[Rfam]
RNA: Insect-Specific Flavivirus 3' UTR repeats Rb
RNA sequence: CCCCAGUCCCCAAGGUCAUGGGAAAAACUGACCCCGAAGUGCUGCAAGGGCA
Numbered sequence: 001c002c003c004c005a006g007u008c009c010c011c012a013a014g015g016u017c018a019u020g021g022g023a024a025a026a027a028c029u030g031a032c033c034c035c036g037a038a039g040u041g042c043u044g045c046a047a048g049g050g051c052a
Base pairs, nucleotide, nucleotide: 001050002049003048004044005043006042007041009039014033015032016031017030018029